Notes
The record is a 138-nucleotide RNA from Theobroma cacao, which matches "Small nucleolar RNA snoR111" in Rfam. Lineage of the source: Eukaryota > Tracheophyta > Euphyllophyta > Spermatophyta > Theobroma. The family's RNA type in Rfam is H/ACA-box small nucleolar RNA.

[Rfam]
RNA sequence: UAACAGCAAGGAGGCAGUUUAUAUAAGACUGUCUUCUUCAUGGGGAAGAACAUUGAGGUAUAUCAAAUUCAAAGGCCGAGAUAUCGUUUCAGACGUCAUAUUUUCUCCAUUGACGAUCUGGUUGUUGCUCGUCCACAC
Numbered sequence: 001u002a003a004c005a006g007c008a009a010g011g012a013g014g015c016a017g018u019u020u021a022u023a024u025a026a027g028a029c030u031g032u033c034u035u036c037u038u039c040a041u042g043g044g045g046a047a048g049a050a051c052a053u054u055g056a057g058g059u060a061u062a063u064c065a066a067a068u069u070c071a072a073a074g075g076c077c078g079a080g081a082u083a084u085c086g087u088u089u090c091a092g093a094c095g096u097c098a099u100a101u102u103u104u105c106u107c108c109a110u111u112g113a114c115g116a117u118c119u120g121g122u123u124g125u126u127g128c129u130c131g132u133c134c135a136c137a138c
Stems, first nucleotide, its partner, number of pairs: 007042002010039002013033006074134002077131004083122004092117001094115005